Shown here is a 93-nucleotide RNA from Helicocarpus griseus, a member of the family "A. fumigatus snoRNA Afu_263". Gene Ontology terms of the family: nucleolus and RNA processing. A search with the family's covariance model found it, with a score of 96 bits.
RNA sequence: UUUUAUGAUGAUUCCCAUAUUUAUAAGCAUAGUUCAACUGAAGGUCUCCGGAUCCUGAACGAAAACCUUUACCAUCUUUCACCUUUUCUGAGC
Numbered sequence: 001u002u003u004u005a006u007g008a009u010g011a012u013u014c015c016c017a018u019a020u021u022u023a024u025a026a027g028c029a030u031a032g033u034u035c036a037a038c039u040g041a042a043g044g045u046c047u048c049c050g051g052a053u054c055c056u057g058a059a060c061g062a063a064a065a066c067c068u069u070u071a072c073c074a075u076c077u078u079u080c081a082c083c084u085u086u087u088c089u090g091a092g093c
Base pairs, nucleotide, nucleotide: 006019008018009017010016032060033059034058035057036056043054044053045052046051